The record is a 259-nucleotide sequence from Otolemur garnettii, which matches "bip internal ribosome entry site (IRES)" in Rfam. Lineage of the source: Eukaryota > Opisthokonta > Craniata > Gnathostomata > Otolemur. Rfam links the family to the GO term ribosome binding. The family's consensus secondary structure was predicted with PFOLD. A reference for the family is Kim and Jang (2002), "Continuous heat shock enhances translational initiation directed by internal ribosomal entry site", Biochem Biophys Res Commun.

RNA sequence: CGCCGGCCAAGACAGCACAGACAGGACUGACUUAGGUGUUUCUCGAACGUGAGAGGUGAGCGCCGCGGCCUCCUGUCCCAGACCUGCCUUCGCCUUGUUCUUGGCUCCUUGUGACCCCGGAGCCCUGCCGCCCUCAGACCCAUAACCUCGCUGCGCUCCUGUGCUGCGGCCUGUGGUAGGAUUGCCUACGACGUCCUGCCUGCCUGGUGACCGACUCGCCGGCAAGAUGAAGCUCUCCCUGGUGGCAGCGAUGCUGCUG
Numbered sequence: 001c002g003c004c005g006g007c008c009a010a011g012a013c014a015g016c017a018c019a020g021a022c023a024g025g026a027c028u029g030a031c032u033u034a035g036g037u038g039u040u041u042c043u044c045g046a047a048c049g050u051g052a053g054a055g056g057u058g059a060g061c062g063c064c065g066c067g068g069c070c071u072c073c074u075g076u077c078c079c080a081g082a083c084c085u086g087c088c089u090u091c092g093c094c095u096u097g098u099u100c101u102u103g104g105c106u107c108c109u110u111g112u113g114a115c116c117c118c119g120g121a122g123c124c125c126u127g128c129c130g131c132c133c134u135c136a137g138a139c140c141c142a143u144a145a146c147c148u149c150g151c152u153g154c155g156c157u158c159c160u161g162u163g164c165u166g167c168g169g170c171c172u173g174u175g176g177u178a179g180g181a182u183u184g185c186c187u188a189c190g191a192c193g194u195c196c197u198g199c200c201u202g203c204c205u206g207g208u209g210a211c212c213g214a215c216u217c218g219c220c221g222g223c224a225a226g227a228u229g230a231a232g233c234u235c236u237c238c239c240u241g242g243u244g245g246c247a248g249c250g251a252u253g254c255u256g257c258u259g
Base pairs, nucleotide, nucleotide: 004248006246007245008244009243015164016163017162018161019160020159031120032119035116036115037114060107062105063104064103065102067100068099167179169177170176171175